RNA sequence: GUGAUUGGUAGAGGAGCGAAAACCAUUAGUACAUGUUCUGAGGGUAAUGAGAACCGUUGAAGUUCAUGAAAAGGGGAAUUCGCCGAAGUGGAAGAAAGACUCAUCUUUCUUAUGCUGGACCUAUGUUGAAUAAGCAUAGGGCUGUCACAUGCUCAACCCAAGGAGUAUGUGGAGAACUAUCUCACGU
Numbered sequence: 001g002u003g004a005u006u007g008g009u010a011g012a013g014g015a016g017c018g019a020a021a022a023c024c025a026u027u028a029g030u031a032c033a034u035g036u037u038c039u040g041a042g043g044g045u046a047a048u049g050a051g052a053a054c055c056g057u058u059g060a061a062g063u064u065c066a067u068g069a070a071a072a073g074g075g076g077a078a079u080u081c082g083c084c085g086a087a088g089u090g091g092a093a094g095a096a097a098g099a100c101u102c103a104u105c106u107u108u109c110u111u112a113u114g115c116u117g118g119a120c121c122u123a124u125g126u127u128g129a130a131u132a133a134g135c136a137u138a139g140g141g142c143u144g145u146c147a148c149a150u151g152c153u154c155a156a157c158c159c160a161a162g163g164a165g166u167a168u169g170u171g172g173a174g175a176a177c178u179a180u181c182u183c184a185c186g187u
Stems, first nucleotide, its partner, number of pairs: 007181005016083005023076002032068004038062002087116004092111007117143002120140008145172010